[Rfam]
RNA sequence: UCUGUAACAGGGCGAACCUCGUGUGAGCGGGGGGUGCAAAGUCUCAGGUCCCGUGGCAAACGCCGCAGGACGACUGGAUUGCCAGA
Numbered sequence: 001u002c003u004g005u006a007a008c009a010g011g012g013c014g015a016a017c018c019u020c021g022u023g024u025g026a027g028c029g030g031g032g033g034g035u036g037c038a039a040a041g042u043c044u045c046a047g048g049u050c051c052c053g054u055g056g057c058a059a060a061c062g063c064c065g066c067a068g069g070a071c072g073a074c075u076g077g078a079u080u081g082c083c084a085g086a
Base pairs, nucleotide, nucleotide: 012037013036017032018031019030020029021028022027040080041079042078043077045076046075047074048071049070050069054065055064056063057062
About this RNA:
This 86-nucleotide RNA sequence from Rhizobacter koreensis belongs to the Rfam family "c-di-GMP-I riboswitch aptamer". For this family Rfam cites "Identification of 22 candidate structured RNAs in bacteria using the CMfinder comparative genomics pipeline" (Weinberg et al., Nucleic Acids Res, 2007). A search with the family's covariance model found it, with a score of 45 bits. Rfam links the family to the GO term cyclic-di-GMP binding.